[Rfam]
Nucleotides: 307
Base pairs, nucleotide, nucleotide: 001307002306003305004304007301008300009299012262013261014260015259016258021061022060023059024058034048035047036046037045038044071291072290073289074288075287081239082238083237084236091105092104093103094102095101106122107121108120109119110118111117123235124234125233126232127231128230129229144221145220146219264278265277266276267275268274269273
Number, partner (000 for none) and nucleotide at each position: 001307g002306u003305g004304g005000g006000u007301g008300g009299a010000a011000g012262c013261u014260c015259a016258u017000u018000g019000u020000a021061g022060a023059g024058g025000u026000c027000a028000c029000a030000u031000g032000c033000a034048g035047a036046g037045u038044g039000c040000u041000c042000g043000u044038c045037a046036c047035u048034c049000c050000a051000c052000c053000a054000a055000u056000c057000a058024c059023c060022u061021c062000g063000g064000g065000g066000a067000a068000g069000g070000u071291c072290u073289g074288a075287g076000a077000c078000a079000a080000g081239a082238g083237c084236c085000a086000a087000u088000a089000g090000c091105u092104g093103c094102c095101c096000u097000u098000g099000c100000a101095g102094g103093g104092c105091a106122u107121c108120a109119c110118c111117u112000g113000a114000u115000u116000c117111g118110g119109g120108u121107g122106a123235g124234c125233g126232a127231g128230u129229g130000a131000a132000c133000a134000g135000a136000a137000a138000g139000c140000a141000a142000u143000g144221g145220c146219c147000a148000a149000u150000g151000u152000g153000a154000g155000c156000g157000c158000u159000u160000g161000u162000u163000g164000c165000a166000g167000g168000a169000g170000a171000a172000g173000c174000u175000u176000c177000a178000u179000g180000a181000c182000g183000c184000a185000g186000u187000u188000u189000c190000a191000g192000c193000g194000c195000c196000a197000u198000g199000a200000a201000g202000c203000g204000g205000a206000u207000g208000u209000g210000g211000c212000g213000c214000u215000c216000a217000c218000g219146g220145g221144c222000u223000u224000g225000g226000a227000a228000u229129u230128a231127c232126u233125c234124g235123c236084g237083g238082c239081u240000a241000g242000c243000a244000a245000a246000u247000g248000a249000g250000u251000u252000c253000g254000a255000u256000g257000u258016a259015u260014g261013a262012g263000g264278u265277g266276g267275g268274g269273c270000a271000c272000a273269g274268c275267u276266c277265c278264a279000g280000a281000a282000c283000c284000c285000a286000a287075u288074u289073c290072a291071g292000a293000c294000u295000a296000c297000u298000c299009u300008c301007c302000a303000c304004c305003c306002a307001c